[Rfam]
RNA: tRNA
Nucleotides: 074
Stems, first nucleotide, its partner, number of pairs: 001073007010026004028044005050066005
Number, partner (000 for none) and nucleotide at each position: 001073g002072g003071g004070c005069c006068u007067a008000u009000a010026g011025c012024u013023c014000a015000g016000a017000c018000g019000g020000u021000u022000a023013g024012a025011g026010c027000g028044c029043u030042g031041c032040c033000c034000u035000g036000a037000u038000a039000a040032g041031g042030c043029a044028g045000a046000g047000g048000u049000c050066a051065g052064u053063g054062g055000u056000u057000c058000a059000a060000g061000u062054c063053c064052a065051c066050u067007u068006a069005g070004g071003c072002c073001c074000a